RNA: Small nucleolar RNA Z107/R87
RNA sequence: GAUCGCAGUGAUGACCACAAGAAAUUCAAGCUCAACAGACCGGAAUGCAGGGUUCUCUACAUUCUAGAGAACUUUGCGUGUCGACAACCCCGCUGACCUGAGCGAUC
Numbered sequence: 001g002a003u004c005g006c007a008g009u010g011a012u013g014a015c016c017a018c019a020a021g022a023a024a025u026u027c028a029a030g031c032u033c034a035a036c037a038g039a040c041c042g043g044a045a046u047g048c049a050g051g052g053u054u055c056u057c058u059a060c061a062u063u064c065u066a067g068a069g070a071a072c073u074u075u076g077c078g079u080g081u082c083g084a085c086a087a088c089c090c091c092g093c094u095g096a097c098c099u100g101a102g103c104g105a106u107c
Base pairs, nucleotide, nucleotide: 001107002106003105004104005103006102